RNA sequence: CGAAGAGGCCGUGACUGGCGCCUAGGGUGGAGCACCACCGGGGAGUGGCCUCCACGACGUGCCGCGCGCCUGGGCGAUUCCC
Number, nucleotide and partner (000 for none) at each position: 001c000002g000003a000004a000005g052006a051007g050008g049009c048010c047011g046012u045013g000014a000015c042016u041017g070018g069019c068020g067021c066022c000023u000024a000025g000026g000027g038028u037029g036030g035031a000032g000033c000034a000035c030036c029037a028038c027039c000040g000041g016042g015043g000044a000045g012046u011047g010048g009049c008050c007051u006052c005053c000054a000055c000056g000057a000058c000059g000060u076061g075062c074063c073064g000065c000066g021067c020068g019069c018070c017071u000072g000073g063074g062075c061076g060077a000078u000079u000080c000081c000082c000
Shown here is an 82-nucleotide RNA from Lentzea tibetensis, a member of the family "ZMP/ZTP riboswitch aptamer (pfl RNA motif)". On this family, see Jones and Ferre-D'Amare, Nat Struct Mol Biol 2015: "Recognition of the bacterial alarmone ZMP through long-distance association of two RNA subdomains".